[Rfam]
RNA sequence: UUGGGUGGCUGAAUUAGAGAUCGGCGCCUGUUUUUUUUAUCUAUAAUGUUUGGAGUAUUAUCAUGUCUCUAAGUGUUGAAGCUAAAGCUAAAAUCGUAGCGGAAUUCGGUCGUGGUACU
Numbered sequence: 001u002u003g004g005g006u007g008g009c010u011g012a013a014u015u016a017g018a019g020a021u022c023g024g025c026g027c028c029u030g031u032u033u034u035u036u037u038u039a040u041c042u043a044u045a046a047u048g049u050u051u052g053g054a055g056u057a058u059u060a061u062c063a064u065g066u067c068u069c070u071a072a073g074u075g076u077u078g079a080a081g082c083u084a085a086a087g088c089u090a091a092a093a094u095c096g097u098a099g100c101g102g103a104a105u106u107c108g109g110u111c112g113u114g115g116u117a118c119u
Base pairs, nucleotide, nucleotide: 008025009024010023011022012021049073050072051071052070053069054068055067
RNA: Ribosomal S15 leader